Description
The family of this 103-nucleotide sequence from Flavobacterium orientale is "SAM riboswitch aptamer (S box leader)". Pairs were carried over by alignment from the consensus structure, which is taken from published work. The source organism's lineage runs through Bacteria, Bacteroidota, Flavobacteriia, Flavobacteriales and Flavobacterium. Rfam links the family to the GO term regulation of gene expression.

RNA sequence: UCGUUAUCACGAAAGCCGGAGGGACUAGACCCUGUGAAAGCUUAGCAACCCUGCAACUGUAGAAGGUGCUACAUUCUAUUCGCCGCGGCGAAACAGAUAACCC
Numbered sequence: 001u002c003g004u005u006a007u008c009a010c011g012a013a014a015g016c017c018g019g020a021g022g023g024a025c026u027a028g029a030c031c032c033u034g035u036g037a038a039a040g041c042u043u044a045g046c047a048a049c050c051c052u053g054c055a056a057c058u059g060u061a062g063a064a065g066g067u068g069c070u071a072c073a074u075u076c077u078a079u080u081c082g083c084c085g086c087g088g089c090g091a092a093a094c095a096g097a098u099a100a101c102c103c
Stems, first nucleotide, its partner, number of pairs: 003101006013043004021032003026078004044070004049066002051062004074095001079092005